[Rfam]
RNA sequence: ACGUACCCGGGGCGCGGCGCGCACCCCGGGUGGAAGACAGACACACCGUGCCUCGGGAAGAAAUAGGCACAUCAGGGCGUU
Numbered sequence: 001a002c003g004u005a006c007c008c009g010g011g012g013c014g015c016g017g018c019g020c021g022c023a024c025c026c027c028g029g030g031u032g033g034a035a036g037a038c039a040g041a042c043a044c045a046c047c048g049u050g051c052c053u054c055g056g057g058a059a060g061a062a063a064u065a066g067g068c069a070c071a072u073c074a075g076g077g078c079g080u081u
Stems, first nucleotide, its partner, number of pairs: 004032009014022003048070006

nrdJ RNA: an 81-nucleotide sequence. The match comes from Rfam's covariance-model search (70 bits).